[Rfam]
RNA sequence: UUCAUUAAGGUGGGUGGAGUAGUAUAACAAUGUGCCCCAUAUUGUUAUAGUAUCCCACCUACCCUGAUGUG
Numbered sequence: 001u002u003c004a005u006u007a008a009g010g011u012g013g014g015u016g017g018a019g020u021a022g023u024a025u026a027a028c029a030a031u032g033u034g035c036c037c038c039a040u041a042u043u044g045u046u047a048u049a050g051u052a053u054c055c056c057a058c059c060u061a062c063c064c065u066g067a068u069g070u071g
Stems, first nucleotide, its partner, number of pairs: 003069005009063009019053003023049011

Rfam assigns this 71-nucleotide RNA from Gadus morhua to the family "mir-2985 microRNA precursor family". The source organism's lineage runs through Eukaryota, Opisthokonta, Osteoglossocephalai, Gadiformes and Gadus. Gene Ontology terms of the family: miRNA-mediated post-transcriptional gene silencing and RISC complex. Rfam 15.1 lists 2,000 matches to the family in 637 species. RNAs can be post-transcriptional modified, in micro RNAs (miRNA) editing of pre-mRNA is a common process. For this family Rfam cites "Song exposure regulates known and novel microRNAs in the zebra finch auditory forebrain" (Gunaratne et al., BMC Genomics, 2011). The base pairs follow the family's consensus structure, which was predicted with RNAalifold.